[Rfam]
RNA: mir-BART13 microRNA precursor family
RNA sequence: GGGCACCUCGAUAACCGGCUCGUGGCUCGUACAGACGAUUGUUUGGCUCUGUAACUUGCCAGGGACGGCUGACGAUGUGUUU
Numbered sequence: 001g002g003g004c005a006c007c008u009c010g011a012u013a014a015c016c017g018g019c020u021c022g023u024g025g026c027u028c029g030u031a032c033a034g035a036c037g038a039u040u041g042u043u044u045g046g047c048u049c050u051g052u053a054a055c056u057u058g059c060c061a062g063g064g065a066c067g068g069c070u071g072a073c074g075a076u077g078u079g080u081u082u
Stems, first nucleotide, its partner, number of pairs: 001082006009074002012071001015068003019064003023061004029055002031052005036046001